This 84-nucleotide sequence from Notechis scutatus belongs to the Rfam family "Small nucleolar RNA SNORD127".
RNA sequence: UGGCAACUGUGAUGAUUCCUUUAAAGUCUGCAAUGCACGUAGCUGCAGUAUGGAGACAACAGUCCCUCUAACCUGAUGUUGCUU
Numbered sequence: 001u002g003g004c005a006a007c008u009g010u011g012a013u014g015a016u017u018c019c020u021u022u023a024a025a026g027u028c029u030g031c032a033a034u035g036c037a038c039g040u041a042g043c044u045g046c047a048g049u050a051u052g053g054a055g056a057c058a059a060c061a062g063u064c065c066c067u068c069u070a071a072c073c074u075g076a077u078g079u080u081g082c083u084u
Stems, first nucleotide, its partner, number of pairs: 002083006